Overview
A member of the RNA family "mir-1000 microRNA precursor family" from Dendroctonus ponderosae, 69 nucleotides long. The base pairs follow the family's consensus structure, which was predicted with RNAalifold. Rfam 15.1 lists 152 matches to the family in 150 species.
[Rfam]
RNA sequence: GGCUCUGAUAUUGUCCUGUCACAGCAGUACUAUUUCCAGAUACUGCUGGUGCGGGACAUAACCAGAGCU
Numbered sequence: 001g002g003c004u005c006u007g008a009u010a011u012u013g014u015c016c017u018g019u020c021a022c023a024g025c026a027g028u029a030c031u032a033u034u035u036c037c038a039g040a041u042a043c044u045g046c047u048g049g050u051g052c053g054g055g056a057c058a059u060a061a062c063c064a065g066a067g068c069u
Stems, first nucleotide, its partner, number of pairs: 003067004012058007022048008